[Rfam]
The family of this 73-nucleotide RNA sequence from Apaloderma vittatum is "tRNA". Its family is annotated with triplet codon-amino acid adaptor activity in the Gene Ontology. Pairs were carried over by alignment from the consensus structure, which is taken from published work. NCBI's taxonomy places the organism under Eukaryota, Gnathostomata, Sarcopterygii, Saurischia, Apaloderma.
RNA sequence: GGCCGGUUAGCUCGGUUGGUUAGAGCGUGGUGCUGAUAACACCAAGGUCAUGGGUUCGAUUCCCGUUUGGUCC
Numbered sequence: 001g002g003c004c005g006g007u008u009a010g011c012u013c014g015g016u017u018g019g020u021u022a023g024a025g026c027g028u029g030g031u032g033c034u035g036a037u038a039a040c041a042c043c044a045a046g047g048u049c050a051u052g053g054g055u056u057c058g059a060u061u062c063c064c065g066u067u068u069g070g071u072c073c
Stems, first nucleotide, its partner, number of pairs: 001073002004070001006068001010026004028044005050066005